[Rfam]
RNA: MIR828 microRNA precursor family
RNA sequence: GUAAUGUUUCUUGCUCAAAUGAGUAUUCCAACAACAGUAGCCUUUUGAACAAGAACAUAUGUUUUUGCCUUGUAUGGUUAUGAUGUUGCUGGUAUUUACUGUUUCUGAGAUGCUCAUUCGAGCAAGAAAUAUUAG
Number, nucleotide and partner (000 for none) at each position: 001g000002u000003a000004a132005u131006g130007u129008u128009u000010c126011u125012u124013g123014c122015u121016c120017a000018a118019a117020u116021g115022a114023g113024u112025a111026u110027u109028c000029c107030a106031a000032c000033a000034a000035c000036a000037g000038u000039a000040g000041c000042c000043u000044u000045u000046u000047g000048a000049a000050c000051a000052a000053g000054a000055a000056c000057a000058u000059a000060u000061g000062u000063u000064u000065u000066u000067g000068c000069c000070u000071u000072g000073u000074a000075u000076g000077g000078u000079u000080a000081u000082g000083a000084u000085g000086u000087u000088g000089c000090u000091g000092g000093u000094a000095u000096u000097u000098a000099c000100u000101g000102u000103u000104u000105c000106u030107g029108a000109g027110a026111u025112g024113c023114u022115c021116a020117u019118u018119c000120g016121a015122g014123c013124a012125a011126g010127a000128a008129a007130u006131a005132u004133u000134a000135g000